RNA sequence: UCUGCUGCUUCUCUUAACAGUAUUCGUGUCUGUGAAUCAAUUUGUAUGGUUCCCGGGCAGUAUGCAGACGGGAAGCAGAAAGCAAUUGUUCCUCUCGCUAUCCACCGCGGAAGUUUUGUGAUGUGAUUGGACGUCGAGGAACUACACUA
Number, nucleotide and partner (000 for none) at each position: 001u080002c000003u077004g076005c075006u000007g000008c072009u071010u070011c000012u068013c067014u000015u000016a000017a000018c000019a000020g061021u000022a000023u000024u000025c000026g000027u059028g058029u057030c056031u055032g054033u000034g000035a000036a051037u000038c049039a000040a000041u000042u000043u000044g000045u000046a000047u000048g000049g038050u000051u036052c000053c000054c032055g031056g030057g029058c028059a027060g000061u020062a000063u000064g000065c000066a000067g013068a012069c000070g010071g009072g008073a000074a000075g005076c004077a003078g000079a000080a001081a000082g000083c000084a000085a000086u000087u000088g142089u141090u140091c139092c138093u137094c136095u000096c133097g132098c000099u000100a000101u131102c130103c129104a128105c000106c000107g000108c000109g000110g000111a119112a000113g000114u000115u000116u000117u000118g000119u111120g000121a000122u000123g000124u000125g000126a000127u000128u104129g103130g102131a101132c097133g096134u000135c000136g094137a093138g092139g091140a090141a089142c088143u000144a000145c000146a000147c000148u000149a000

The record is a 149-nucleotide RNA sequence from Hordeum vulgare, which matches "Small nucleolar RNA snoR136" in Rfam. The family has 8 seed sequences and 452 matches in Rfam 15.1. By type it is an H/ACA-box small nucleolar RNA. The source organism's lineage runs through Eukaryota, Spermatophyta, Mesangiospermae, Poaceae and Hordeum vulgare. The family's consensus secondary structure was predicted with mfold.